Burkholderia sRNA Bp1_Cand738_SIPHT: a 204-nucleotide RNA sequence from Paraburkholderia monticola. A reference for the family is Khoo et al. (2012), "Computational discovery and RT-PCR validation of novel Burkholderia conserved and Burkholderia pseudomallei unique sRNAs", BMC Genomics.
[Rfam]
RNA sequence: CGAAAAACCAGCGUUCGUGGACGCUGGUGAGGGACUUCAAUAAGGCCGUUCCACCCGCAGGGAAGUAAAACGGUGACGCGUUGCGUCUAAGGACCGGGGGCGACGGUAAAAAGGUAAACGCCCUACAACCAAUGUCGACGGAUUCUAUGCACCGUUUUAUAGAUCGUCAACACUAUAGAAUGCAAAAACUAUAACUAUUUGUAA
Numbered sequence: 001c002g003a004a005a006a007a008c009c010a011g012c013g014u015u016c017g018u019g020g021a022c023g024c025u026g027g028u029g030a031g032g033g034a035c036u037u038c039a040a041u042a043a044g045g046c047c048g049u050u051c052c053a054c055c056c057g058c059a060g061g062g063a064a065g066u067a068a069a070a071c072g073g074u075g076a077c078g079c080g081u082u083g084c085g086u087c088u089a090a091g092g093a094c095c096g097g098g099g100g101c102g103a104c105g106g107u108a109a110a111a112a113g114g115u116a117a118a119c120g121c122c123c124u125a126c127a128a129c130c131a132a133u134g135u136c137g138a139c140g141g142a143u144u145c146u147a148u149g150c151a152c153c154g155u156u157u158u159a160u161a162g163a164u165c166g167u168c169a170a171c172a173c174u175a176u177a178g179a180a181u182g183c184a185a186a187a188a189c190u191a192u193a194a195c196u197a198u199u200u201g202u203a204a
Stems, first nucleotide, its partner, number of pairs: 008027007046106005054065001075087005133172003138167004144163004